The record is a 77-nucleotide RNA sequence, which matches "CyVA-1 RNA" in Rfam. By type it is a small RNA. Rfam's curators write: Cyanobacteria, Acidobacteria (1 example), Verrucomicrobia (1 example). The base pairs follow the family's consensus structure, which is taken from published work.
[Rfam]
RNA sequence: CCGUCGGUUGGCACUUUUCGUCCUUUCUGGCCAUUUGUGAGUCCCGAAGGAGAAGGACGUCAGGGACUCAACGACGG
Numbered sequence: 001c002c003g004u005c006g007g008u009u010g011g012c013a014c015u016u017u018u019c020g021u022c023c024u025u026u027c028u029g030g031c032c033a034u035u036u037g038u039g040a041g042u043c044c045c046g047a048a049g050g051a052g053a054a055g056g057a058c059g060u061c062a063g064g065g066a067c068u069c070a071a072c073g074a075c076g077g
Stems, first nucleotide, its partner, number of pairs: 001077006009033004038070008